[Rfam]
RNA sequence: AAAUUAAAGAAAUUACCCCCUCGUAUAAUAAUGGGAAUAUGGCCCAUAAGUUUCUACCUGAUGACCGUAAAUUGUCGGACUAUGAGGGAAAGUAGAUAUGCC
Number, nucleotide and partner (000 for none) at each position: 001a000002a000003a000004u000005u000006a000007a000008a000009g000010a000011a000012a000013u000014u000015a000016c000017c000018c088019c087020c086021u085022c084023g083024u082025a081026u000027a000028a000029u049030a000031a047032u046033g045034g044035g043036a000037a000038u000039a000040u000041g000042g000043c035044c034045c033046a032047u031048a000049a029050g000051u000052u000053u000054c000055u000056a000057c000058c078059u077060g076061a075062u074063g073064a072065c000066c000067g000068u000069a000070a000071a000072u064073u063074g062075u061076c060077g059078g058079a000080c000081u025082a024083u023084g022085a021086g020087g019088g018089a000090a000091a000092g000093u000094a000095g000096a000097u000098a000099u000100g000101c000102c000

Purine riboswitch aptamer: a 102-nucleotide sequence from Cytobacillus dafuensis. It scores 89 bits against the family's covariance model. For this family Rfam cites "Riboswitches Control Fundamental Biochemical Pathways in Bacillus subtilis and Other Bacteria" (Mandal et al., Cell, 2003). Pairs were carried over by alignment from the consensus structure, which is taken from published work. The family has 133 seed sequences and 4,097 matches in Rfam 15.1.